The record is a 114-nucleotide sequence from Plasmodium chabaudi, which matches "U5 spliceosomal RNA" in Rfam. From the family's description: U5 RNA is a component of both types of known spliceosome. The precise function of this molecule is unknown, though it is known that the 5' loop is required for splice site selection and p220 binding, and that both the 3' stem-loop and the Sm site are important for Sm protein binding and cap methylation. Pairs were carried over by alignment from the consensus structure, which is taken from published work. Rfam classes the family as a spliceosomal small nuclear RNA.
[Rfam]
RNA sequence: GGUGUGUGUACUUACUACAUAACGAAUCAAUCUUUCGCCUUUUACUAAAGAUUGCCGUGUAGGAGGUACUUUAAAUACAAUACCACAAAUUUUUGUCACGUCAUUUUUGGCGUG
Numbered sequence: 001g002g003u004g005u006g007u008g009u010a011c012u013u014a015c016u017a018c019a020u021a022a023c024g025a026a027u028c029a030a031u032c033u034u035u036c037g038c039c040u041u042u043u044a045c046u047a048a049a050g051a052u053u054g055c056c057g058u059g060u061a062g063g064a065g066g067u068a069c070u071u072u073a074a075a076u077a078c079a080a081u082a083c084c085a086c087a088a089a090u091u092u093u094u095g096u097c098a099c100g101u102c103a104u105u106u107u108u109g110g111c112g113u114g
Base pairs, nucleotide, nucleotide: 003079004078005077006076009068010067011066012065013064015062016061017060018059019058028054029053030052031051032050033049034048035047097114098113099112100111101110102109103108